[Rfam]
RNA: Small nucleolar RNA U19
RNA sequence: AAUUGGCUUAGUUAGGAGGCAUAAAGUAAUCUGAUCAUCAAUACUUUUCUGUAUUGUUUUGAUCUAUUUGACUUGGGGUCUUUUGAGGAGGAGCUUUGCUUUUGCUCAAACCAAGCUUCUCCCAAGCAGCCUCAGACAUUA
Number, nucleotide and partner (000 for none) at each position: 001a000002a000003u000004u021005g020006g000007c018008u017009u016010a000011g000012u000013u000014a000015g000016g009017a008018g007019g000020c005021a004022u000023a000024a000025a000026g000027u000028a000029a000030u000031c000032u000033g064034a063035u062036c061037a060038u000039c000040a000041a057042u056043a055044c000045u053046u000047u000048u000049c000050u000051g000052u000053a045054u000055u043056g042057u041058u000059u000060u037061g036062a035063u034064c033065u000066a000067u000068u000069u000070g000071a000072c000073u135074u134075g133076g132077g131078g130079u129080c000081u000082u126083u125084u124085g123086a000087g122088g121089a120090g119091g118092a117093g116094c115095u114096u000097u000098g000099c000100u000101u000102u000103u000104g000105c000106u000107c000108a000109a000110a000111c000112c000113a000114a095115g094116c093117u092118u091119c090120u089121c088122c087123c085124a084125a083126g082127c000128a000129g079130c078131c077132u076133c075134a074135g073136a000137c000138a000139u000140u000141a000